[Rfam]
RNA sequence: GGCUAUUCCGAAGGUAGUGAGUGACCUCAAUUGAUUGUUCGCAGUCAAAGAUUGAAAUCCUUAUUCUCCUCUUUUCCCCCUUUCACUACUGCACUUGACUAGUCUUAA
Numbered sequence: 001g002g003c004u005a006u007u008c009c010g011a012a013g014g015u016a017g018u019g020a021g022u023g024a025c026c027u028c029a030a031u032u033g034a035u036u037g038u039u040c041g042c043a044g045u046c047a048a049a050g051a052u053u054g055a056a057a058u059c060c061u062u063a064u065u066c067u068c069c070u071c072u073u074u075u076c077c078c079c080c081u082u083u084c085a086c087u088a089c090u091g092c093a094c095u096u097g098a099c100u101a102g103u104c105u106u107a108a
Base pairs, nucleotide, nucleotide: 001104002103003102004101005100007098008097010096011095014092015091016087017086018085019084020083021082041069043067044066

This 108-nucleotide sequence from Homo sapiens belongs to the Rfam family "Y RNA".
Rfam describes the family as follows. Y RNAs are components of the Ro ribonucleoprotein particle (Ro RNP), in association with Ro60 and La proteins. The Y RNAs and Ro60 and La proteins are well conserved, but the function of the Ro RNP is not known. In humans the RNA component can be one of four small RNAs -- hY1, hY3, hY4 and hY5.
NCBI's taxonomy places the organism under Eukaryota, Chordata, Gnathostomata, Boreoeutheria, Homo.
Pairs were carried over by alignment from the consensus structure, which is taken from published work.